[Rfam]
RNA sequence: GGUUCUAUGGUCUAGUGGUUAUGACUCCGGAUUUUGACGCAUGUCAGUUUUCCGGCAACUCGGGUUCAAUUCCCGAUAGGACCU
Numbered sequence: 001g002g003u004u005c006u007a008u009g010g011u012c013u014a015g016u017g018g019u020u021a022u023g024a025c026u027c028c029g030g031a032u033u034u035u036g037a038c039g040c041a042u043g044u045c046a047g048u049u050u051u052c053c054g055g056c057a058a059c060u061c062g063g064g065u066u067c068a069a070u071u072c073c074c075g076a077u078a079g080g081a082c083c084u
Stems, first nucleotide, its partner, number of pairs: 001083007010025003027055005060076005
Dot-bracket structure: (((((((..(((..........))).(((((...................)))))....(((((.......)))))))))))).